[Rfam]
RNA: RT-6 RNA
RNA sequence: UACUCUAAACGUAGGUUUAGAGGAAAAAGAUUGUUGUCAACAGUCCAGAACAGAUUUCUACAAGAAAUCUAGA
Numbered sequence: 001u002a003c004u005c006u007a008a009a010c011g012u013a014g015g016u017u018u019a020g021a022g023g024a025a026a027a028a029g030a031u032u033g034u035u036g037u038c039a040a041c042a043g044u045c046c047a048g049a050a051c052a053g054a055u056u057u058c059u060a061c062a063a064g065a066a067a068u069c070u071a072g073a
Stems, first nucleotide, its partner, number of pairs: 003022008052068001055067004